Notes
This 109-nucleotide sequence from Gossypium anomalum belongs to the Rfam family "MIR403 microRNA precursor family". NCBI's taxonomy places the organism under Eukaryota, Viridiplantae, Magnoliopsida, Mesangiospermae, Gossypium. A search with the family's covariance model found it, with a score of 79 bits.
RNA sequence: GCAUAUUUCAGGUUUGUGCAUGAAUCUAAUAAAACCGUAAGCUAGAAAAAGAAGAUGGAAAGUUGGAUUUGUUUCAUGUUAGAUUCACGCACAAACUCGUAAUCUGUCU
Numbered sequence: 001g002c003a004u005a006u007u008u009c010a011g012g013u014u015u016g017u018g019c020a021u022g023a024a025u026c027u028a029a030u031a032a033a034a035c036c037g038u039a040a041g042c043u044a045g046a047a048a049a050a051g052a053a054g055a056u057g058g059a060a061a062g063u064u065g066g067a068u069u070u071g072u073u074u075c076a077u078g079u080u081a082g083a084u085u086c087a088c089g090c091a092c093a094a095a096c097u098c099g100u101a102a103u104c105u106g107u108c109u
Stems, first nucleotide, its partner, number of pairs: 001107003005103003011097009021087006028080003